[Rfam]
RNA sequence: AGCUUUGCGCAGAGGCGAUAACGUGACCAAUGAGGCAUAGCCGAGGUGCGUUUAUUGCUGGUUGAAAACUUAACCCAAUACCCCGCACUGGCUCUUUCGAGAUGUCAGAUGCAAUUUUUGAUCGCCCAAGAGGGC
Dot-bracket structure: ...................(((((.(((.....(((...)))..))))))))................................((((((((((....))...))))).)))...........((((....))))
The family of this 135-nucleotide RNA from Acrobeloides nanus is "U4 spliceosomal RNA". About the family: U4 small nuclear RNA (U4 snRNA) is a component of the major U2-dependent spliceosome. Rfam 15.1 lists 32,178 matches to the family in 2,547 species. It scores 110 bits against the family's covariance model. The base pairs follow the family's consensus structure, which is taken from published work.